[Rfam]
RNA sequence: GCGGAGAGCCGGAUGGCCGCGGGGCGUAAAGCCCCGAGGAAAGUCCGGACUCCAAGAAGCAACGGUGCCGGGUAACGCCCGGGCGGGGUAACCCGACGGAUAGCGCCACAGAGAACAGACGGCCCCGCAGGUCGGGGUCAGGGUGAAACGGUGGGGUAAGAGCCCACCGCGCCGCUGGCAACAGGGGCGGCAAGGCAAGCCCCACCGGGAGCAAUGCCAAAUAGGACCCCCGCGCGGGCUGGUCCCCUUGGGGAUACCGCCGCUAGGCUCGCUUUUGCCGAGAGGGGUCGGGUUGGCAGCUAAAGGUGCAUGGCAACAUGUACCGUAGAUGAAUGGUCAUCGAAGGGGGCAACCCCGGAACAAAAUCCGGCUUACAGGCUCUCCGCGCGU
Numbered sequence: 001g002c003g004g005a006g007a008g009c010c011g012g013a014u015g016g017c018c019g020c021g022g023g024g025c026g027u028a029a030a031g032c033c034c035c036g037a038g039g040a041a042a043g044u045c046c047g048g049a050c051u052c053c054a055a056g057a058a059g060c061a062a063c064g065g066u067g068c069c070g071g072g073u074a075a076c077g078c079c080c081g082g083g084c085g086g087g088g089u090a091a092c093c094c095g096a097c098g099g100a101u102a103g104c105g106c107c108a109c110a111g112a113g114a115a116c117a118g119a120c121g122g123c124c125c126c127g128c129a130g131g132u133c134g135g136g137g138u139c140a141g142g143g144u145g146a147a148a149c150g151g152u153g154g155g156g157u158a159a160g161a162g163c164c165c166a167c168c169g170c171g172c173c174g175c176u177g178g179c180a181a182c183a184g185g186g187g188c189g190g191c192a193a194g195g196c197a198a199g200c201c202c203c204a205c206c207g208g209g210a211g212c213a214a215u216g217c218c219a220a221a222u223a224g225g226a227c228c229c230c231c232g233c234g235c236g237g238g239c240u241g242g243u244c245c246c247c248u249u250g251g252g253g254a255u256a257c258c259g260c261c262g263c264u265a266g267g268c269u270c271g272c273u274u275u276u277g278c279c280g281a282g283a284g285g286g287g288u289c290g291g292g293u294u295g296g297c298a299g300c301u302a303a304a305g306g307u308g309c310a311u312g313g314c315a316a317c318a319u320g321u322a323c324c325g326u327a328g329a330u331g332a333a334u335g336g337u338c339a340u341c342g343a344a345g346g347g348g349g350c351a352a353c354c355c356c357g358g359a360a361c362a363a364a365a366u367c368c369g370g371c372u373u374a375c376a377g378g379c380u381c382u383c384c385g386c387g388c389g390u
Base pairs, nucleotide, nucleotide: 001386002385003384004383005382006381007380008379009378010377011375012341013340014339015338016337017336018335020036021035022034023033024032025031041373042372043371045370046369047368048367049366050211051210052209053208059276061274063207064206065205066204067203068082069081070080071079072078083097084095085094086093087092098202099201103200104199105196106195107194120142122138123137124136125135126134127133150168151167152166153165154164155163169191170189171188172187173186175184176183177182215298216297217296218295225289226288227287228286229285230284268282269281270280271279305324306323307322308321309320310319311318312317

A member of the RNA family "Bacterial RNase P class A" from Phaeobacter sp. 22II1-1F12B, 390 nucleotides long. About the family: Ribonuclease P (RNase P) is a ubiquitous endoribonuclease, found in archaea, bacteria and eukarya as well as chloroplasts and mitochondria. Its best characterised activity is the generation of mature 5'-ends of tRNAs by cleaving the 5'-leader elements of precursor-tRNAs. Cellular RNase Ps are ribonucleoproteins. RNA from bacterial RNase Ps retains its catalytic activity in the absence of the protein subunit, i.e. it is a ribozyme. The family's consensus secondary structure is taken from published work.